[Rfam]
RNA sequence: UUGCAGUUAAUUAAGCCGACUAGCCCUCUGUACCUGUGGGAGGCUGGUGUGCAAUGGCUGCAUACAGCAAGUCACUGGUUGUGUAACGCGCUUUGUCUUUCCCGUGCAAAGUGCUCCAAGGGACCUCUGAGACAUUG
Numbered sequence: 001u002u003g004c005a006g007u008u009a010a011u012u013a014a015g016c017c018g019a020c021u022a023g024c025c026c027u028c029u030g031u032a033c034c035u036g037u038g039g040g041a042g043g044c045u046g047g048u049g050u051g052c053a054a055u056g057g058c059u060g061c062a063u064a065c066a067g068c069a070a071g072u073c074a075c076u077g078g079u080u081g082u083g084u085a086a087c088g089c090g091c092u093u094u095g096u097c098u099u100u101c102c103c104g105u106g107c108a109a110a111g112u113g114c115u116c117c118a119a120g121g122g123a124c125c126u127c128u129g130a131g132a133c134a135u136u137g
Base pairs, nucleotide, nucleotide: 002053003052004051005050019048020047021046022045025042027040028039077125078124079123089113090112091111092110093109094108
Rfam assigns this 137-nucleotide RNA sequence from Callorhinchus milii to the family "Small nucleolar RNA SNORA70". A reference for the family is Charette and Gray (2000), "Pseudouridine in RNA: what, where, how, and why", IUBMB Life. The family's consensus secondary structure was predicted with PFOLD. Rfam links the family to the GO terms RNA processing and nucleolus. From the family's description: snoRNA U70 seems to be exclusive to mammals and is a member of the H/ACA class of snoRNA which contain H (ANANNA) and ACA box motifs.